[Rfam]
RNA sequence: UAUAUUUGCACGCUCAUAGUAAAGUGCUAUGGACAUACAUAAAAAUCAUUUAAAUAAUAUUGGAAUG
Numbered sequence: 001u002a003u004a005u006u007u008g009c010a011c012g013c014u015c016a017u018a019g020u021a022a023a024g025u026g027c028u029a030u031g032g033a034c035a036u037a038c039a040u041a042a043a044a045a046u047c048a049u050u051u052a053a054a055u056a057a058u059a060u061u062g063g064a065a066u067g
Stems, first nucleotide, its partner, number of pairs: 014032006
Rfam assigns this 67-nucleotide sequence from Aquimarina muelleri to the family "S15-Flavobacteria ribosomal protein leader".
NCBI's taxonomy places the organism under Bacteria, Pseudomonadati, Bacteroidota, Flavobacteriales, Aquimarina muelleri.
The sequence is in the family's curated seed alignment.